Shown here is a 119-nucleotide sequence from Limosilactobacillus coleohominis, a member of the family "PyrR binding site". This family represents the PyrR binding site and terminator structure. This RNA structure is found upstream of a variety of genes involved in pyrimidine biosynthesis and transport. The alignment also includes a portion of the antiterminator structure.
RNA sequence: AUGUCCUUUAAGUUAGUCCCGUGAGGCUAGUAAGGAGCGGUUAAAUAUUACUUAGCAUGACUAGGUUUUUAUCUCGCAACCCCUAGACUACACGGAUGGUGUAGCUAGGGGUUUUCUUA
Numbered sequence: 001a002u003g004u005c006c007u008u009u010a011a012g013u014u015a016g017u018c019c020c021g022u023g024a025g026g027c028u029a030g031u032a033a034g035g036a037g038c039g040g041u042u043a044a045a046u047a048u049u050a051c052u053u054a055g056c057a058u059g060a061c062u063a064g065g066u067u068u069u070u071a072u073c074u075c076g077c078a079a080c081c082c083c084u085a086g087a088c089u090a091c092a093c094g095g096a097u098g099g100u101g102u103a104g105c106u107a108g109g110g111g112u113u114u115u116c117u118u119a
Stems, first nucleotide, its partner, number of pairs: 004036005013030006044072001047069001050066006078113009088104006
Dot-bracket structure: ...(((((....((((((......)))))).))))).......(..(..((((((.....))))))..)..).....(((((((((.((((((.....)))))))))))))))......